This 92-nucleotide sequence from Pteropus alecto belongs to the Rfam family "mir-3200 microRNA precursor family". The family has 4 seed sequences and 66 matches in Rfam 15.1. The match comes from Rfam's covariance-model search (79 bits).
RNA sequence: AGGAGGUGGCCGAUGGAAUCGGAGAAGGCGCACAAGGUCUGUGUCUAGUACUCUCCACACCUUGCGCUACUCAGGUCUGCUUGGGUCCUCCC
Numbered sequence: 001a002g003g004a005g006g007u008g009g010c011c012g013a014u015g016g017a018a019u020c021g022g023a024g025a026a027g028g029c030g031c032a033c034a035a036g037g038u039c040u041g042u043g044u045c046u047a048g049u050a051c052u053c054u055c056c057a058c059a060c061c062u063u064g065c066g067c068u069a070c071u072c073a074g075g076u077c078u079g080c081u082u083g084g085g086u087c088c089u090c091c092c
Stems, first nucleotide, its partner, number of pairs: 002091005008086001011083003016078001018076003022072003027068006035062004041051004